Archaeal large subunit ribosomal RNA: a 269-nucleotide part of an RNA from Methanotorris igneus. It is one of the family's seed sequences. The family's consensus secondary structure is taken from published work.
RNA sequence: GGCUGCCUGAGGGGAAGGUGGCUCUAGUACGAGAGGAACGAGCCGCCGGCGCCUCUGGUCUAUCGGUUGUCCGACAGGGCAUUGCCGAGCAGCUACGCGCCAGGGGAUAAGGGCUGAAAGCAUCUAAGCCCGAAACCCCCCCCGAAAAUAGGCAGCCAGUCCCUUCGGGGACGAGGGCUCCCGUAGAAGACGGGGUUGAUAGGCCGGGGGUGUAAGCACCGAGGCCUUUGGCCGAGGUGUUGAGCCCGCCGGUACUAAUCGCCCGAGGG
Numbered sequence: 001g002g003c004u005g006c007c008u009g010a011g012g013g014g015a016a017g018g019u020g021g022c023u024c025u026a027g028u029a030c031g032a033g034a035g036g037a038a039c040g041a042g043c044c045g046c047c048g049g050c051g052c053c054u055c056u057g058g059u060c061u062a063u064c065g066g067u068u069g070u071c072c073g074a075c076a077g078g079g080c081a082u083u084g085c086c087g088a089g090c091a092g093c094u095a096c097g098c099g100c101c102a103g104g105g106g107a108u109a110a111g112g113g114c115u116g117a118a119a120g121c122a123u124c125u126a127a128g129c130c131c132g133a134a135a136c137c138c139c140c141c142c143c144g145a146a147a148a149u150a151g152g153c154a155g156c157c158a159g160u161c162c163c164u165u166c167g168g169g170g171a172c173g174a175g176g177g178c179u180c181c182c183g184u185a186g187a188a189g190a191c192g193g194g195g196u197u198g199a200u201a202g203g204c205c206g207g208g209g210g211u212g213u214a215a216g217c218a219c220c221g222a223g224g225c226c227u228u229u230g231g232c233c234g235a236g237g238u239g240u241u242g243a244g245c246c247c248g249c250c251g252g253u254a255c256u257a258a259u260c261g262c263c264c265g266a267g268g269g
Stems, first nucleotide, its partner, number of pairs: 001157008011143004017047008048101005056095003063088005068081005104138003111131005175264004179195005200257003203253005208247003216240005223233001